[Rfam]
RNA sequence: AGGUCAUGGUGCGGACGAUUUCUUAACAAACUCUUGUACCUCUCCCAAGCUUCGUAUAGCGACUCUCUAGCUUGCUGUUCAAAGUUGGCAAUGGCCUUCUUCAACUU
Numbered sequence: 001a002g003g004u005c006a007u008g009g010u011g012c013g014g015a016c017g018a019u020u021u022c023u024u025a026a027c028a029a030a031c032u033c034u035u036g037u038a039c040c041u042c043u044c045c046c047a048a049g050c051u052u053c054g055u056a057u058a059g060c061g062a063c064u065c066u067c068u069a070g071c072u073u074g075c076u077g078u079u080c081a082a083a084g085u086u087g088g089c090a091a092u093g094g095c096c097u098u099c100u101u102c103a104a105c106u107u
Stems, first nucleotide, its partner, number of pairs: 001107001003105002006101001057074002

Rfam assigns this 107-nucleotide RNA from Lactuca sativa to the family "Plant small nucleolar RNA R71".
The organism belongs to Lactuca, within Eukaryota.
A reference for the family is Brown et al. (2003), "Plant snoRNAs: functional evolution and new modes of gene expression", Trends Plant Sci.
Gene Ontology terms of the family: RNA processing and nucleolus.
The base pairs follow the family's consensus structure, which was predicted with PFOLD.
It scores 45 bits against the family's covariance model.